RNA sequence: ACCCGUGAUGUGGGAGAACCGGCAAAAGCCGGUGCCGAAGGAGCAACCGCCCCGGAAACUCUCAGGCGCAAGGACCGCAUCCGCCAA
Numbered sequence: 001a002c003c004c005g006u007g008a009u010g011u012g013g014g015a016g017a018a019c020c021g022g023c024a025a026a027a028g029c030c031g032g033u034g035c036c037g038a039a040g041g042a043g044c045a046a047c048c049g050c051c052c053c054g055g056a057a058a059c060u061c062u063c064a065g066g067c068g069c070a071a072g073g074a075c076c077g078c079a080u081c082c083g084c085c086a087a
Stems, first nucleotide, its partner, number of pairs: 007081007019032004034067003037063002041061003047055002

The family of this 87-nucleotide RNA from Phaeobacter sp. 22II1-1F12B is "Glycine riboswitch aptamer". Taxonomically the source falls in Phaeobacter (Bacteria, Pseudomonadati, Pseudomonadota, Roseobacteraceae).